[Rfam]
The family of this 179-nucleotide RNA sequence from Halalkalibacter hemicellulosilyticus is "Lysine riboswitch aptamer". Riboswitches are metabolite binding domains within certain messenger RNAs that serve as precision sensors for their corresponding targets. The match comes from Rfam's covariance-model search (121 bits).

RNA sequence: AGUGAGGGUAGAGGUGCAAAGAUCAUCAGUAAACAUGUUGAGGAGAAUGAGCUCCAAGGAACCAUGUUAAAAGGGAUAUUUGCCGAAGCUAUUGGUAGCUCAUAAUCCAAUCGCUGGGACUGUUUUGAAUAAGAGCAGGACUGUCAUAUAGCAUGGCUAUAUGGAGGGCUAUCUCACAC
Numbered sequence: 001a002g003u004g005a006g007g008g009u010a011g012a013g014g015u016g017c018a019a020a021g022a023u024c025a026u027c028a029g030u031a032a033a034c035a036u037g038u039u040g041a042g043g044a045g046a047a048u049g050a051g052c053u054c055c056a057a058g059g060a061a062c063c064a065u066g067u068u069a070a071a072a073g074g075g076a077u078a079u080u081u082g083c084c085g086a087a088g089c090u091a092u093u094g095g096u097a098g099c100u101c102a103u104a105a106u107c108c109a110a111u112c113g114c115u116g117g118g119a120c121u122g123u124u125u126u127g128a129a130u131a132a133g134a135g136c137a138g139g140a141c142u143g144u145c146a147u148a149u150a151g152c153a154u155g156g157c158u159a160u161a162u163g164g165a166g167g168g169c170u171a172u173c174u175c176a177c178a179c
Stems, first nucleotide, its partner, number of pairs: 006174006016083005022077003032068006039061001087115003091111005116142002120138007144164007

The organism belongs to Halalkalibacter hemicellulosilyticus, within Bacteria.